This 108-nucleotide RNA sequence from Curtobacterium sp. MCBD17_040 belongs to the Rfam family "Glycine riboswitch aptamer".
RNA sequence: GCCACUCUGAAAAGCAGGGCGCCGUCACGGCGUGCCCUCGCCCACGGUGAAAGCCGACCGCCUCCGACCGGUCGGCGAAACUCUCAGGCACAUGACAGAGGGGGAGUU
Numbered sequence: 001g002c003c004a005c006u007c008u009g010a011a012a013a014g015c016a017g018g019g020c021g022c023c024g025u026c027a028c029g030g031c032g033u034g035c036c037c038u039c040g041c042c043c044a045c046g047g048u049g050a051a052a053g054c055c056g057a058c059c060g061c062c063u064c065c066g067a068c069c070g071g072u073c074g075g076c077g078a079a080a081c082u083c084u085c086a087g088g089c090a091c092a093u094g095a096c097a098g099a100g101g102g103g104g105a106g107u108u
Base pairs, nucleotide, nucleotide: 002103003102005100006099007098008097009096016038017037018036019035020034021033022032040089041088042087044084047083049081053076054075055074056073057072058071059070060069